[Rfam]
RNA sequence: UGGGGUUAAAGGCCGGUGCUAAAGGGUCCUGCCCAAUGGCUACUGACAGGUGCUGUCGGGGCAGGGACCCUUUAGCACCGGUUCGUGUUACCAA
Numbered sequence: 001u002g003g004g005g006u007u008a009a010a011g012g013c014c015g016g017u018g019c020u021a022a023a024g025g026g027u028c029c030u031g032c033c034c035a036a037u038g039g040c041u042a043c044u045g046a047c048a049g050g051u052g053c054u055g056u057c058g059g060g061g062c063a064g065g066g067a068c069c070c071u072u073u074a075g076c077a078c079c080g081g082u083u084c085g086u087g088u089u090a091c092c093a094a
Stems, first nucleotide, its partner, number of pairs: 003091001005089001007087002011083017029065002032060003036056002043049002
The family of this 94-nucleotide RNA from Sorghum bicolor is "MIR5387 microRNA precursor family". A search with the family's covariance model found it, with a score of 70 bits. NCBI's taxonomy places the organism under Eukaryota, Streptophyta, Andropogonodae, Sorghinae, Sorghum. The base pairs follow the family's consensus structure, which was predicted with RNAalifold.